Nucleotides: 087
Base pairs, nucleotide, nucleotide: 004084005083006082007081
Number, partner (000 for none) and nucleotide at each position: 001000a002000u003000u004084g005083g006082c007081a008000g009000g010000u011000g012000a013000u014000g015000u016000u017000a018000a019000a020000g021000u022000u023000g024000u025000u026000u027000u028000u029000a030000u031000g032000c033000u034000u035000a036000a037000c038000c039000a040000c041000u042000g043000a044000a045000a046000u047000a048000u049000u050000a051000u052000g053000u054000g055000g056000a057000c058000a059000a060000u061000a062000a063000a064000c065000u066000c067000c068000g069000c070000u071000u072000a073000u074000u075000a076000u077000c078000u079000g080000a081007u082006g083005c084004c085000u086000g087000a
The record is an 87-nucleotide sequence from Coptis chinensis, which matches "Small nucleolar RNA R16" in Rfam.
A search with the family's covariance model found it, with a score of 69 bits.